[Rfam]
Nucleotides: 110
Stems, first nucleotide, its partner, number of pairs: 001110005
Number, partner (000 for none) and nucleotide at each position: 001110g002109a003108u004107g005106g006000c007000a008000g009000u010000g011000a012000c013000g014000a015000c016000u017000u018000g019000g020000u021000g022000a023000u024000a025000u026000u027000c028000a029000a030000g031000c032000u033000c034000a035000a036000c037000a038000g039000a040000c041000c042000a043000a044000a045000u046000c047000a048000c049000a050000u051000g052000u053000c054000a055000a056000u057000c058000u059000c060000u061000u062000u063000a064000g065000a066000u067000g068000a069000g070000a071000u072000u073000a074000a075000c076000c077000u078000a079000u080000a081000u082000g083000u084000u085000c086000c087000u088000u089000u090000u091000u092000u093000c094000a095000c096000a097000g098000g099000a100000g101000a102000a103000g104000a105000c106005c107004c108003a109002u110001u